[Rfam]
RNA sequence: GAGGGUCGGCCCCUCGAAAUCGGCUUACAGGAGCAGGUUUCAAACCGCCACAAGCUGCGUGGGUAAAGAGCCCUCGUGGUGAGCGUUGCUGGAAAAGGCGGAGUAGGACUCCGUCAGGU
Numbered sequence: 001g002a003g004g005g006u007c008g009g010c011c012c013c014u015c016g017a018a019a020u021c022g023g024c025u026u027a028c029a030g031g032a033g034c035a036g037g038u039u040u041c042a043a044a045c046c047g048c049c050a051c052a053a054g055c056u057g058c059g060u061g062g063g064u065a066a067a068g069a070g071c072c073c074u075c076g077u078g079g080u081g082a083g084c085g086u087u088g089c090u091g092g093a094a095a096a097g098g099c100g101g102a103g104u105a106g107g108a109c110u111c112c113g114u115c116a117g118g119u
Base pairs, nucleotide, nucleotide: 001015002014003013004012005011016041017040018039019038020037021036023034024033025032026031046118048092049091051088052087053086054080055079057077058076059075061073062072063071064070097115098114099113100112101111102110
Rfam assigns this 119-nucleotide RNA from Parazoarcus communis to the family "Group II catalytic intron D1-D4-2". From the family's description: Group II introns are found in rRNA, tRNA and mRNA of organelles in fungi, plants and protists, and also in mRNA in bacteria. Pairs were carried over by alignment from the consensus structure.